[Rfam]
RNA sequence: UGAUUUGUUCGUAGAGCGCGAACAGCAUAAUCAAAAGAAAGCUCAACUGAU
Numbered sequence: 001u002g003a004u005u006u007g008u009u010c011g012u013a014g015a016g017c018g019c020g021a022a023c024a025g026c027a028u029a030a031u032c033a034a035a036a037g038a039a040a041g042c043u044c045a046a047c048u049g050a051u
Stems, first nucleotide, its partner, number of pairs: 006024006014044004
The family of this 51-nucleotide sequence is "6A RNA". By type it is a small RNA. Pairs were carried over by alignment from the consensus structure, which is taken from published work.